[Rfam]
RNA sequence: UUCAUAAUUCUGUAAAUACACACGUGUAUCGACACAUGGAAUAGGGUGCCUCUCGCCAAUCGGCUGGGGGUUGUUCCAUGGGAUGCGCGGAGGCUCAAC
Numbered sequence: 001u002u003c004a005u006a007a008u009u010c011u012g013u014a015a016a017u018a019c020a021c022a023c024g025u026g027u028a029u030c031g032a033c034a035c036a037u038g039g040a041a042u043a044g045g046g047u048g049c050c051u052c053u054c055g056c057c058a059a060u061c062g063g064c065u066g067g068g069g070g071u072u073g074u075u076c077c078a079u080g081g082g083a084u085g086c087g088c089g090g091a092g093g094c095u096c097a098a099c
Stems, first nucleotide, its partner, number of pairs: 023089008035080009048071005